A member of the RNA family "porB RNA" from Bergeriella denitrificans, 62 nucleotides long.
RNA sequence: CAAUUAUAGUUAGCGUCAUGGUAUCGCCGAUAACGGCGGUAAAUCUGAAAAAAUCAAGCGGG
Numbered sequence: 001c002a003a004u005u006a007u008a009g010u011u012a013g014c015g016u017c018a019u020g021g022u023a024u025c026g027c028c029g030a031u032a033a034c035g036g037c038g039g040u041a042a043a044u045c046u047g048a049a050a051a052a053a054u055c056a057a058g059c060g061g062g
Stems, first nucleotide, its partner, number of pairs: 023040007
It is annotated as a small RNA. The source organism's lineage runs through Bacteria, Pseudomonadati, Pseudomonadota, Neisseriales and Bergeriella.